[Rfam]
RNA sequence: GGGAGGCGGAGGGGUCCCGCGCCUCUGAGGCUUUGCUCUGGCAAAGCCUCAGAGGCGCGGGACCCCUCCGCCUCCC
Numbered sequence: 001g002g003g004a005g006g007c008g009g010a011g012g013g014g015u016c017c018c019g020c021g022c023c024u025c026u027g028a029g030g031c032u033u034u035g036c037u038c039u040g041g042c043a044a045a046g047c048c049u050c051a052g053a054g055g056c057g058c059g060g061g062a063c064c065c066c067u068c069c070g071c072c073u074c075c076c
Stems, first nucleotide, its partner, number of pairs: 001076009011066002016061020
Rfam assigns this 76-nucleotide RNA from Pelodiscus sinensis to the family "Epstein-Barr virus stable intronic sequence RNA 2".
The organism belongs to Pelodiscus, within Eukaryota.
Pairs were carried over by alignment from the consensus structure.
By type it is a non-coding RNA gene.